MIR6274 microRNA precursor family: a 107-nucleotide RNA from Prunus dulcis.
[Rfam]
Nucleotides: 107
Base pairs, nucleotide, nucleotide: 002106003105004104005103013096014095015094016093017092018091019090020089021088023086024085025084026083027082028081029080030079031078032077033076034075035074036073038071039070040069041068042067043066044065045064046063047062049060050059051058
Number, partner (000 for none) and nucleotide at each position: 001000g002106g003105a004104u005103a006000a007000c008000a009000c010000u011000u012000u013096u014095u015094u016093u017092g018091c019090u020089a021088u022000c023086c024085u025084c026083g027082a028081c029080u030079a031078a032077u033076a034075a035074u036073g037000g038071a039070a040069u041068g042067a043066c044065a045064u046063g047062u048000a049060g050059g051058a052000u053000a054000a055000u056000u057000u058051u059050u060049u061000c062047a063046c064045a065044u066043g067042u068041c069040a070039u071038u072000a073036u074035g075034u076033u077032a078031u079030u080029a081028g082027u083026c084025g085024g086023g087000g088021a089020u090019a091018g092017c093016a094015a095014a096013a097000u098000a099000g100000u101000g102000c103005u104004a105003u106002c107000c

A search with the family's covariance model found it, with a score of 85 bits.